[Rfam]
RNA sequence: CCAACAUGGAUACCCUGGGAAGUCACUCUCCCCAGGCUCUCUCCAGGUAGUGUAGGGGAGCACAGGGCUCUGCCCCAUGUUGUACAGUCCCUUUCCACAAUGUUGGAGAUAAAGCCAGGCCUUGAGUUUGCACCUGCAUAUUCCUACAGCUUCUCAGGGUCCUAUGGACAAUGACUGGAGAGACAAACCAUGCAGGAAAAAGCU
Numbered sequence: 001c002c003a004a005c006a007u008g009g010a011u012a013c014c015c016u017g018g019g020a021a022g023u024c025a026c027u028c029u030c031c032c033c034a035g036g037c038u039c040u041c042u043c044c045a046g047g048u049a050g051u052g053u054a055g056g057g058g059a060g061c062a063c064a065g066g067g068c069u070c071u072g073c074c075c076c077a078u079g080u081u082g083u084a085c086a087g088u089c090c091c092u093u094u095c096c097a098c099a100a101u102g103u104u105g106g107a108g109a110u111a112a113a114g115c116c117a118g119g120c121c122u123u124g125a126g127u128u129u130g131c132a133c134c135u136g137c138a139u140a141u142u143c144c145u146a147c148a149g150c151u152u153c154u155c156a157g158g159g160u161c162c163u164a165u166g167g168a169c170a171a172u173g174a175c176u177g178g179a180g181a182g183a184c185a186a187a188c189c190a191u192g193c194a195g196g197a198a199a200a201a202g203c204u
Base pairs, nucleotide, nucleotide: 001106002105003104004103005102006101007100008044009043010042012040014036015035016034018029019028020027047098048097050095056091057090058089059088060085062083063082064081065078133196134195135194136193137192138191139190150182151181152180154178155177159169160168161167162166
This 204-nucleotide RNA from Camelus dromedarius belongs to the Rfam family "Small nucleolar RNA SNORA73 family". By type it is an H/ACA-box small nucleolar RNA. U17 (SNORA73A and SNORA73B) also known as E1 belongs to the H/ACA class of small nucleolar RNAs (snoRNAs). Vertebrate U17 is intron-encoded and ranges in length from 200-230 nucleotides, longer than most snoRNAs.